[Rfam]
A member of the RNA family "mir-3473 microRNA precursor family" from Jaculus jaculus, 79 nucleotides long. The base pairs follow the family's consensus structure, which was predicted with RNAalifold. The match comes from Rfam's covariance-model search (72 bits).
RNA sequence: ACCACUAAGCCAUCUCUCCAGCCCUACUAUGCUUUUCAAUAUUAUAAAAUAUAUUGAGCUGGGGAGAUGGCUCAGUGGU
Numbered sequence: 001a002c003c004a005c006u007a008a009g010c011c012a013u014c015u016c017u018c019c020a021g022c023c024c025u026a027c028u029a030u031g032c033u034u035u036u037c038a039a040u041a042u043u044a045u046a047a048a049a050u051a052u053a054u055u056g057a058g059c060u061g062g063g064g065a066g067a068u069g070g071c072u073c074a075g076u077g078g079u
Stems, first nucleotide, its partner, number of pairs: 002078005008072015024056001